[Rfam]
The family of this 82-nucleotide sequence from Capra hircus is "Small nucleolar RNA ZL8". The base pairs follow the family's consensus structure, which was predicted with RNAfold. Rfam classes the family as a C/D-box small nucleolar RNA. For this family Rfam cites "Insights into snoRNA biogenesis and processing from PAR-CLIP of snoRNA core proteins and small RNA sequencing" (Kishore et al., Genome Biol, 2013). Its family is annotated with nucleolus and RNA processing in the Gene Ontology. The match comes from Rfam's covariance-model search (69 bits).

RNA sequence: CCAGAGUGGUGGUGGUGAAGUGGUUGGACUAGAGUCUCUGAGCGCUUCUCUGAGGAUCUUUGAAACCACCUGAUCCACUCGU
Numbered sequence: 001c002c003a004g005a006g007u008g009g010u011g012g013u014g015g016u017g018a019a020g021u022g023g024u025u026g027g028a029c030u031a032g033a034g035u036c037u038c039u040g041a042g043c044g045c046u047u048c049u050c051u052g053a054g055g056a057u058c059u060u061u062g063a064a065a066c067c068a069c070c071u072g073a074u075c076c077a078c079u080c081g082u
Stems, first nucleotide, its partner, number of pairs: 004080006018074001022070003026066001031059003035055004040050003